[Rfam]
RNA sequence: UUUUGUGCGGUGAUGAUGCAAUUUUAUGGACUAGAGUUUCUGAUCUGAGUACCAUACUCAGAAUUUGAUUAACAAACCCUUGGCUGUCUGAGCACAACU
Number, nucleotide and partner (000 for none) at each position: 001u000002u000003u097004u096005g095006u094007g093008c092009g000010g000011u000012g000013a000014u000015g000016a000017u000018g000019c000020a000021a000022u000023u000024u000025u000026a000027u000028g000029g000030a000031c000032u000033a000034g000035a000036g000037u000038u000039u068040c067041u000042g000043a000044u063045c061046u060047g059048a058049g057050u000051a000052c000053c000054a000055u000056a000057c049058u048059c047060a046061g045062a000063a044064u000065u000066u000067g040068a039069u000070u000071a000072a000073c000074a000075a000076a000077c000078c000079c000080u000081u000082g000083g000084c000085u000086g000087u000088c000089u000090g000091a000092g008093c007094a006095c005096a004097a003098c000099u000
The record is a 99-nucleotide RNA from Senna tora, which matches "Small nucleolar RNA Z157/R69/R10" in Rfam. The source organism's lineage runs through Eukaryota, Tracheophyta, Fabales, Caesalpinioideae and Senna. Clan: SNORD52 clan. Its family is annotated with RNA processing and nucleolus in the Gene Ontology. The match comes from Rfam's covariance-model search (79 bits). On this family, see Chen et al., Nucleic Acids Res 2003: "The high diversity of snoRNAs in plants: identification and comparative study of 120 snoRNA genes from Oryza sativa". Rfam 15.1 lists 836 matches to the family in 232 species.